Source information:
The record is a 98-nucleotide sequence from Clostridium tagluense, which matches "Purine riboswitch aptamer" in Rfam.
RNA sequence: UUUAAAAACAAUAGCGUCACUCAUAUAUCCCUUGAAUAUGGCAAGGAGUAUCUACGGUCAGCCGCAAAUUGACUACUAUGAGUAAUUUUAGUAUGAGC
Dot-bracket structure: ..................(((((((....(((((.......))))).........((((((.......))))))..)))))))...............
Numbered sequence: 001u002u003u004a005a006a007a008a009c010a011a012u013a014g015c016g017u018c019a020c021u022c023a024u025a026u027a028u029c030c031c032u033u034g035a036a037u038a039u040g041g042c043a044a045g046g047a048g049u050a051u052c053u054a055c056g057g058u059c060a061g062c063c064g065c066a067a068a069u070u071g072a073c074u075a076c077u078a079u080g081a082g083u084a085a086u087u088u089u090a091g092u093a094u095g096a097g098c
Stems, first nucleotide, its partner, number of pairs: 019083007030046005056074006

Its family is annotated with purine nucleobase biosynthetic process in the Gene Ontology. Pairs were carried over by alignment from the consensus structure, which is taken from published work.